RNA sequence: CCCAUGGCUUCGCCAUGGGCUCUGUUGGGGCGCGCCUCCGGCGCU
Numbered sequence: 001c002c003c004a005u006g007g008c009u010u011c012g013c014c015a016u017g018g019g020c021u022c023u024g025u026u027g028g029g030g031c032g033c034g035c036c037u038c039c040g041g042c043g044c045u
Stems, first nucleotide, its partner, number of pairs: 001019008032044005
RNA: Acido-Lenti-1 RNA
Organism: Sulfuriroseicoccus oceanibius